[Rfam]
RNA sequence: CUUGGUAUUCUUCCACAGCUUUCUUGAACUGCAACUUCGUCUUAGAUCGUUGGUUGCCUGUUGUUGAUAAUGGUGCAUCCAUGUGGGCGGUAUACUGUUAUUUUUAUUGCGGUUCAAUAAAGCUGUGGGAAGAUACACACA
Dot-bracket structure: ....(((.....(((.((((((.((((.(((((..........................................................................))))).)))).)))))).))).....))).....
Numbered sequence: 001c002u003u004g005g006u007a008u009u010c011u012u013c014c015a016c017a018g019c020u021u022u023c024u025u026g027a028a029c030u031g032c033a034a035c036u037u038c039g040u041c042u043u044a045g046a047u048c049g050u051u052g053g054u055u056g057c058c059u060g061u062u063g064u065u066g067a068u069a070a071u072g073g074u075g076c077a078u079c080c081a082u083g084u085g086g087g088c089g090g091u092a093u094a095c096u097g098u099u100a101u102u103u104u105u106a107u108u109g110c111g112g113u114u115c116a117a118u119a120a121a122g123c124u125g126u127g128g129g130a131a132g133a134u135a136c137a138c139a140c141a
Stems, first nucleotide, its partner, number of pairs: 005136003013128003017124006024117004029112005
The record is a 141-nucleotide RNA from Gossypium mustelinum, which matches "MIR396 microRNA precursor family" in Rfam. The literature on the family includes a 2004 paper in Mol Cell by Jones-Rhoades and Bartel, "Computational identification of plant microRNAs and their targets, including a stress-induced miRNA". A search with the family's covariance model found it, with a score of 83 bits. The source organism's lineage runs through Eukaryota, Pentapetalae, malvids, Malvoideae and Gossypium.